Plastid-psbA-4 3UTR RNA: a 63-nucleotide RNA from Monsonia emarginata. Pairs were carried over by alignment from the consensus structure, which was predicted with LocARNA. The organism belongs to Monsonia, within Eukaryota. Rfam's curators put it in the seed alignment.
RNA sequence: GAAGUAAAGGAGCAAUACGAAAUCUAUUUCUUGGUAAAACAAGAAGUCGGUUAUUGCUCCUUU
Numbered sequence: 001g002a003a004g005u006a007a008a009g010g011a012g013c014a015a016u017a018c019g020a021a022a023u024c025u026a027u028u029u030c031u032u033g034g035u036a037a038a039a040c041a042a043g044a045a046g047u048c049g050g051u052u053a054u055u056g057c058u059c060c061u062u063u
Stems, first nucleotide, its partner, number of pairs: 006063012026047001028045006